Background: Rfam assigns this 52-nucleotide sequence to the family "ffh sRNA". The family's RNA type in Rfam is small RNA. The literature on the family includes a 2009 paper in BMC Genomics by Meyer et al., "Identification of candidate structured RNAs in the marine organism 'Candidatus Pelagibacter ubique'". A search with the family's covariance model found it, with a score of 62 bits.
[Rfam]
RNA sequence: CACCUUGGGGAUCGCCCUCCGUCAGCGCGUUGCGCCCACGGGGGCGCUACCG
Numbered sequence: 001c002a003c004c005u006u007g008g009g010g011a012u013c014g015c016c017c018u019c020c021g022u023c024a025g026c027g028c029g030u031u032g033c034g035c036c037c038a039c040g041g042g043g044g045c046g047c048u049a050c051c052g
Base pairs, nucleotide, nucleotide: 016044017043018042019041020040021039022038025035026034027033028032